[Rfam]
RNA sequence: UUGCCCACUUGAGGGUGCCUGUUUCUUAAGUGGCCAUUAUUGAGGGGUACAUCAUAAUCCUCUCUGAAAACCUGGGUCAGGGGUCUCACUCACCCUUGCCUCUGGACCUGUUGGGAGGAACAAGA
Numbered sequence: 001u002u003g004c005c006c007a008c009u010u011g012a013g014g015g016u017g018c019c020u021g022u023u024u025c026u027u028a029a030g031u032g033g034c035c036a037u038u039a040u041u042g043a044g045g046g047g048u049a050c051a052u053c054a055u056a057a058u059c060c061u062c063u064c065u066g067a068a069a070a071c072c073u074g075g076g077u078c079a080g081g082g083g084u085c086u087c088a089c090u091c092a093c094c095c096u097u098g099c100c101u102c103u104g105g106a107c108c109u110g111u112u113g114g115g116a117g118g119a120a121c122a123a124g125a
Base pairs, nucleotide, nucleotide: 002049003048004047005046006045009042014038015037016036017035019030058119060117061116062115063114064113071104074101075100076099077098079096080095081094083093084092
This 125-nucleotide RNA sequence from Mola mola belongs to the Rfam family "Small nucleolar RNA SNORA26".
Its Rfam clan is "SNORA27 clan".
A reference for the family is Huttenhofer et al. (2001), "RNomics: an experimental approach that identifies 201 candidates for novel, small, non-messenger RNAs in mouse", EMBO J.
It scores 44 bits against the family's covariance model.
The family's RNA type in Rfam is H/ACA-box small nucleolar RNA.
Rfam's curators write: The snoRNA HBI-6 belong to the H/ACA family of snoRNAs, guiding the pseudouridylation of position U4522 if the 28S rRNA. HBI-6 is the human orthologue of mouse MBI-6 snoRNA.
The family's consensus secondary structure was predicted with RNAalifold.